The record is an 85-nucleotide sequence, which matches "Actinobacteria sRNA Ms_IGR-7" in Rfam. On this family, see Li et al., RNA 2013: "Identification of small RNAs in Mycobacterium smegmatis using heterologous Hfq". The family has 14 seed sequences and 463 matches in Rfam 15.1.

RNA sequence: UAGAAAUGCAUUCUAAACUUGUACUGUAUAUGUUAUAUUAACAUAUACAGUACAAGUUUAGAAUGCAUUUCUUUUUGUUAUAAAG
Numbered sequence: 001u002a003g004a005a006a007u008g009c010a011u012u013c014u015a016a017a018c019u020u021g022u023a024c025u026g027u028a029u030a031u032g033u034u035a036u037a038u039u040a041a042c043a044u045a046u047a048c049a050g051u052a053c054a055a056g057u058u059u060a061g062a063a064u065g066c067a068u069u070u071c072u073u074u075u076u077g078u079u080a081u082a083a084a085g
Stems, first nucleotide, its partner, number of pairs: 002072015018056005024050004029045001031043003
Record summary:
It is annotated as a small RNA.